[Rfam]
RNA sequence: UCACUUCACAUUAAGGCGUUUUCGCUUAUAUGGGACCUGUCCGUUUCGGCGGGCUAUGGUGAUAAACUGCGGUGUGUAAUAGACGCAACGGACCCGGGGGCAGUACCCGGCGGCUCCACCAAAAAGCGCAUAUUUACAGGCGCUUCCUGAUGGGGCCGAACCAGGAUCGACGUGUGUUGAAAGGCAUUGUUUUCACCCGGGCUGAGUAUCCCGCAAAACUGUUCAAAACACACAAGUGCCAACGAUAACGAAGCACUCGCUCUCGCAGCGUAACAUGACGGCCUAACGGCCUAACGUUACAAAGCUAAAGCGCGGUUGGACCCACCGGGCAACAGAAGCGGAUUCC
Numbered sequence: 001u002c003a004c005u006u007c008a009c010a011u012u013a014a015g016g017c018g019u020u021u022u023c024g025c026u027u028a029u030a031u032g033g034g035a036c037c038u039g040u041c042c043g044u045u046u047c048g049g050c051g052g053g054c055u056a057u058g059g060u061g062a063u064a065a066a067c068u069g070c071g072g073u074g075u076g077u078a079a080u081a082g083a084c085g086c087a088a089c090g091g092a093c094c095c096g097g098g099g100g101c102a103g104u105a106c107c108c109g110g111c112g113g114c115u116c117c118a119c120c121a122a123a124a125a126g127c128g129c130a131u132a133u134u135u136a137c138a139g140g141c142g143c144u145u146c147c148u149g150a151u152g153g154g155g156c157c158g159a160a161c162c163a164g165g166a167u168c169g170a171c172g173u174g175u176g177u178u179g180a181a182a183g184g185c186a187u188u189g190u191u192u193u194c195a196c197c198c199g200g201g202c203u204g205a206g207u208a209u210c211c212c213g214c215a216a217a218a219c220u221g222u223u224c225a226a227a228a229c230a231c232a233c234a235a236g237u238g239c240c241a242a243c244g245a246u247a248a249c250g251a252a253g254c255a256c257u258c259g260c261u262c263u264c265g266c267a268g269c270g271u272a273a274c275a276u277g278a279c280g281g282c283c284u285a286a287c288g289g290c291c292u293a294a295c296g297u298u299a300c301a302a303a304g305c306u307a308a309a310g311c312g313c314g315g316u317u318g319g320a321c322c323c324a325c326c327g328g329g330c331a332a333c334a335g336a337a338g339c340g341g342a343u344u345c346c
Stems, first nucleotide, its partner, number of pairs: 039054005058197005069190007084176003088173003094110005111158007198213004203225003207221002313327004318344002321341002
A member of the RNA family "Alphaproteobacteria transfer-messenger RNA" from Erythrobacter litoralis, 346 nucleotides long.
It is one of the family's seed sequences.
It is annotated as a non-coding RNA gene.
From the family's description: Bacterial tmRNA, also known as 10Sa RNA or SsrA, is named for its dual tRNA and mRNA-like properties. Its role is to liberate the mRNA from a stalled ribosome.
Clan: tRNA clan.
The source organism's lineage runs through Bacteria, Pseudomonadati, Pseudomonadota, Sphingomonadales and Erythrobacter litoralis.